[Rfam]
Nucleotides: 089
Base pairs, nucleotide, nucleotide: 012037013036017032018031019030020029021028022027040083041082042081043080045079046078047077048074049073050072055068056067057066058065
Number, partner (000 for none) and nucleotide at each position: 001000u002000a003000c004000c005000u006000a007000c008000a009000u010000a011000g012037g013036c014000a015000a016000a017032u018031u019030u020029u021028a022027c023000g024000a025000a026000a027022g028021u029020a030019a031018a032017g033000g034000a035000c036013g037012c038000a039000a040083a041082g042081c043080c044000a045079c046078g047077g048074g049073c050072c051000u052000a053000a054000a055068g056067c057066a058065a059000a060000c061000u062000u063000u064000u065058u066057u067056g068055c069000c070000a071000u072050g073049g074048u075000a076000g077047c078046c079045g080043g081042g082041u083040u084000g085000c086000a087000a088000u089000u